[Rfam]
The record is a 55-nucleotide RNA, which matches "chrB-b RNA" in Rfam.

RNA sequence: CGGGGACAUCGGCAGGCUCCCCGCUGCAGCAGACGCUCGCGCGUCCAAGCUCUGC
Dot-bracket structure: ((((((.....[[[[[.))))))........(((((....))))).....]]]]]

Overview:
It is one of the family's seed sequences.